The family of this 273-nucleotide RNA from Exserohilum turcicum is "Fungal signal recognition particle RNA". The family's consensus secondary structure is taken from published work. It scores 133 bits against the family's covariance model. By type it is a non-coding RNA gene. The family is grouped with related families in Rfam's "SRP clan". On this family, see Regalia et al., Nucleic Acids Res 2002: "Prediction of signal recognition particle RNA genes".
RNA sequence: UACCUGUAGCGGGUCCUCAUCAGAAGGUACACCGUCAUCCCCAUCCAUCUUCCUUGUCUGCACCGCAGCAGGAGCCCAGUUCGAGUCUCGUGGUGUCCUUUUUCAAAUCCACUCACUCGGGUAACCAGUGAUGCUGGAGGGACCUAAGCAAUGAAUGCAAUUUUGACGAGGGAAGAAAUUCUGCAGUCGGGCAUUCACCAUGGGACGGCGGCGCUGGAUUACUCUUAUUGUGGUUGGAAGGCGGGUUGGCGGGCUGGUGUAUCGACUGAUAUU
Numbered sequence: 001u002a003c004c005u006g007u008a009g010c011g012g013g014u015c016c017u018c019a020u021c022a023g024a025a026g027g028u029a030c031a032c033c034g035u036c037a038u039c040c041c042c043a044u045c046c047a048u049c050u051u052c053c054u055u056g057u058c059u060g061c062a063c064c065g066c067a068g069c070a071g072g073a074g075c076c077c078a079g080u081u082c083g084a085g086u087c088u089c090g091u092g093g094u095g096u097c098c099u100u101u102u103u104c105a106a107a108u109c110c111a112c113u114c115a116c117u118c119g120g121g122u123a124a125c126c127a128g129u130g131a132u133g134c135u136g137g138a139g140g141g142a143c144c145u146a147a148g149c150a151a152u153g154a155a156u157g158c159a160a161u162u163u164u165g166a167c168g169a170g171g172g173a174a175g176a177a178a179u180u181c182u183g184c185a186g187u188c189g190g191g192c193a194u195u196c197a198c199c200a201u202g203g204g205a206c207g208g209c210g211g212c213g214c215u216g217g218a219u220u221a222c223u224c225u226u227a228u229u230g231u232g233g234u235u236g237g238a239a240g241g242c243g244g245g246u247u248g249g250c251g252g253g254c255u256g257g258u259g260u261a262u263c264g265a266c267u268g269a270u271a272u273u
Stems, first nucleotide, its partner, number of pairs: 002014003019270005028261007040249002043246004048241006062234003066230003070226005076217005081211003085206009103141002108136001110133001113131005119126002144148001152197007163190005172181003
Dot-bracket structure: .(((.......)))....(((((....(((((((.....((.((((.((((((........(((.(((.(((((.((((((((.(((((((((.........((...(.(..(((((.((....))))))).)..)...))..(...)...(((((((....(((((....(((....)))....)))))))))))))))))))))..))).)))))....))))).))).))).)))))).)))).)).....)))))))....)))))...
Taxonomically the source falls in Exserohilum turcicum (Eukaryota, Opisthokonta, Dikarya, Pleosporineae).